[Rfam]
This 47-nucleotide RNA from Mycoplana azooxidifex belongs to the Rfam family "Guanidine-II riboswitch aptamer (mini-ykkC)". From the family's description: Simpler in structure and has fewer highly conserved nucleotide positions than the ykkC-yxkD leader. Pairs were carried over by alignment from the consensus structure, which is taken from published work.
RNA sequence: CGUUGAGGACGACCUCCCCGCAUGGGCCACAACCCGGGACGACCCGG
Numbered sequence: 001c002g003u004u005g006a007g008g009a010c011g012a013c014c015u016c017c018c019c020g021c022a023u024g025g026g027c028c029a030c031a032a033c034c035c036g037g038g039a040c041g042a043c044c045c046g047g
Base pairs, nucleotide, nucleotide: 001020002019005016006015007014008013034047035046036045037044038043